Shown here is an 81-nucleotide RNA sequence from Albula goreensis, a member of the family "mir-181 microRNA precursor family".
The family's consensus secondary structure was predicted with PFOLD.
Its family is annotated with RISC complex and miRNA-mediated post-transcriptional gene silencing in the Gene Ontology.
On this family, see Ambros, Cell 2001: "microRNAs: tiny regulators with great potential".

[Rfam]
RNA sequence: GAGACUCAGUGAACAUUCAACGCUGUCGGUGAGUUUGACACAAAAACAAACCAUCGAACGUUGAGUGUACCCUGUGACCUC
Number, nucleotide and partner (000 for none) at each position: 001g081002a080003g079004a000005c076006u000007c074008a073009g000010u000011g000012a000013a000014c067015a066016u065017u064018c063019a062020a061021c060022g059023c000024u000025g000026u057027c056028g055029g054030u053031g052032a000033g051034u050035u049036u048037g000038a000039c000040a000041c000042a000043a000044a000045a000046a000047c000048a036049a035050a034051c033052c031053a030054u029055c028056g027057a026058a000059c022060g021061u020062u019063g018064a017065g016066u015067g014068u000069a000070c000071c000072c000073u008074g007075u000076g005077a000078c000079c003080u002081c001